RNA: Fluoride riboswitch aptamer (crcB RNA motif)
RNA sequence: CCCCUCGACGGCGAUGGGGCUCCGCCGACAACCGCCCGCCCGGGCUGAUGGCUCCUACCCGACC
Dot-bracket structure: .........[[[[..((((((.]]]].......((((....))))....)))))).........